[Rfam]
RNA sequence: AUACUUACCUGGACGGGGUCAAUGGGCAAUCAAUAAGACCCAUGGCCUAGGUUUGUGACUUCCAUUGCACUUUGGAUGGGUGCUUACCUAAGGUUGGCCCAAGUAGUCUAGCCUAUGUCAUAAUUUGUUUCAGUGGGGGCCUGUGUUCGUGUAGCCCCUAC
Numbered sequence: 001a002u003a004c005u006u007a008c009c010u011g012g013a014c015g016g017g018g019u020c021a022a023u024g025g026g027c028a029a030u031c032a033a034u035a036a037g038a039c040c041c042a043u044g045g046c047c048u049a050g051g052u053u054u055g056u057g058a059c060u061u062c063c064a065u066u067g068c069a070c071u072u073u074g075g076a077u078g079g080g081u082g083c084u085u086a087c088c089u090a091a092g093g094u095u096g097g098c099c100c101a102a103g104u105a106g107u108c109u110a111g112c113c114u115a116u117g118u119c120a121u122a123a124u125u126u127g128u129u130u131c132a133g134u135g136g137g138g139g140c141c142u143g144u145g146u147u148c149g150u151g152u153a154g155c156c157c158c159u160a161c
Stems, first nucleotide, its partner, number of pairs: 012119004016048006023042004049089003053086001055083003059079002062075002091114003094110001096108001098106001134160005142153004